RNA sequence: AAACUUACCUGGCACCGGGUUCAGGGUGAUCAGGAAUGCUCUGACCCCGAGUGGAGGCUCACCAUUGCACCUCGGUGGGUUGAAACUCGCGACGAACCCUAACCGGAUGCGCUGGGGCGUGUAGUUUUGCUUUCUAAUUUUCAUUUUACAGUAC
Numbered sequence: 001a002a003a004c005u006u007a008c009c010u011g012g013c014a015c016c017g018g019g020u021u022c023a024g025g026g027u028g029a030u031c032a033g034g035a036a037u038g039c040u041c042u043g044a045c046c047c048c049g050a051g052u053g054g055a056g057g058c059u060c061a062c063c064a065u066u067g068c069a070c071c072u073c074g075g076u077g078g079g080u081u082g083a084a085a086c087u088c089g090c091g092a093c094g095a096a097c098c099c100u101a102a103c104c105g106g107a108u109g110c111g112c113u114g115g116g117g118c119g120u121g122u123a124g125u126u127u128u129g130c131u132u133u134c135u136a137a138u139u140u141u142c143a144u145u146u147u148a149c150a151g152u153a154c
Base pairs, nucleotide, nucleotide: 012120013119015117017047018046019045020044021043023042024041025040026039027038049088050087051086052085056081057080058079060077061076062075063074090115092113093111095108097106098105128153129152130151131150133148136145137144138143
Shown here is a 154-nucleotide RNA sequence from Schistosoma curassoni, a member of the family "U1 spliceosomal RNA". The family's RNA type in Rfam is spliceosomal small nuclear RNA. Taxonomically the source falls in Schistosoma (Eukaryota, Metazoa, Platyhelminthes, Schistosomatoidea). The match comes from Rfam's covariance-model search (80 bits). The base pairs follow the family's consensus structure, which is taken from published work.